[Rfam]
RNA sequence: AAUGGCAAAUGAUGAAUGUUUUCUUAUCCUACACACUGAAUAAUCGUGUUGAUUACUAUACUCCGCUUAUUGUCUGAUGCCAAU
Numbered sequence: 001a002a003u004g005g006c007a008a009a010u011g012a013u014g015a016a017u018g019u020u021u022u023c024u025u026a027u028c029c030u031a032c033a034c035a036c037u038g039a040a041u042a043a044u045c046g047u048g049u050u051g052a053u054u055a056c057u058a059u060a061c062u063c064c065g066c067u068u069a070u071u072g073u074c075u076g077a078u079g080c081c082a083a084u
Stems, first nucleotide, its partner, number of pairs: 003082005